[Rfam]
RNA sequence: AUGUGUCCCAGGUGCUGCGUGGCGCGGUGCCCGGGACGUCAGACAGAGACUGUGCCCCGGGAAGAUCUGGGCACUUCAGGGCGUU
Numbered sequence: 001a002u003g004u005g006u007c008c009c010a011g012g013u014g015c016u017g018c019g020u021g022g023c024g025c026g027g028u029g030c031c032c033g034g035g036a037c038g039u040c041a042g043a044c045a046g047a048g049a050c051u052g053u054g055c056c057c058c059g060g061g062a063a064g065a066u067c068u069g070g071g072c073a074c075u076u077c078a079g080g081g082c083g084u085u
Base pairs, nucleotide, nucleotide: 004038005037006036007035008034009033011031012030013029014028015027016026017025018024052074053073054072055071056070057069059067
RNA: nrdJ RNA
Organism: Streptomyces sp. CNT302